[Rfam]
RNA sequence: AAUCAGGUGAUGAGAAAAAAAAAACUGAAAUAAUGUGAUAGAACUUGGUUCCAUGAUUCCUUUGAAUUUAAGUUUUUGAUGAUU
Numbered sequence: 001a002a003u004c005a006g007g008u009g010a011u012g013a014g015a016a017a018a019a020a021a022a023a024a025c026u027g028a029a030a031u032a033a034u035g036u037g038a039u040a041g042a043a044c045u046u047g048g049u050u051c052c053a054u055g056a057u058u059c060c061u062u063u064g065a066a067u068u069u070a071a072g073u074u075u076u077u078g079a080u081g082a083u084u
Stems, first nucleotide, its partner, number of pairs: 001083001003082003041051004